[Rfam]
RNA sequence: ACGACCUUACUUGAAUGAGAUCUAUUCUAUAGUAAGCGUACCAAUGUAUCCUUGAUUUCUAAGGAGACAGGUGACCAUGUCUGGUGGAUGAAAUAUGACUGCAAGACCAGAGCGUGAUUAACAGCUCCUUAGUGGUCUGUGCAACAUUCAGAGCCGUAGGGGAUCGUUCUCAGUUAGGUUUCCUGGCUGAGGUGGUCUUUGCAGUUGUCUGGCAGACC
Number, nucleotide and partner (000 for none) at each position: 001a039002c038003g000004a000005c000006c032007u031008u000009a000010c000011u000012u000013g027014a026015a025016u024017g023018a000019g000020a000021u000022c000023u017024a016025u015026u014027c013028u000029a000030u000031a007032g006033u000034a000035a000036g000037c000038g002039u001040a000041c000042c000043a000044a000045u069046g068047u067048a000049u065050c064051c063052u062053u061054g060055a000056u000057u000058u000059c000060u054061a053062a052063g051064g050065a049066g000067a047068c046069a045070g000071g000072u000073g000074a000075c000076c000077a000078u000079g217080u216081c215082u214083g213084g000085u000086g000087g000088a000089u000090g000091a000092a000093a000094u000095a000096u000097g000098a205099c204100u203101g202102c201103a200104a198105g197106a196107c195108c194109a193110g000111a168112g167113c166114g165115u000116g000117a000118u000119u000120a000121a157122c156123a000124g154125c153126u152127c151128c000129u000130u000131a147132g000133u144134g000135g142136u141137c000138u000139g000140u000141g136142c135143a000144a133145c000146a000147u131148u000149c000150a000151g127152a126153g125154c124155c000156g122157u121158a000159g000160g000161g000162g000163a000164u000165c114166g113167u112168u111169c191170u190171c189172a188173g187174u186175u185176a184177g183178g182179u000180u000181u000182c178183c177184u176185g175186g174187c173188u172189g171190a170191g169192g000193u109194g108195g107196u106197c105198u104199u000200u103201g102202c101203a100204g099205u098206u000207g000208u000209c000210u000211g000212g000213c083214a082215g081216a080217c079218c000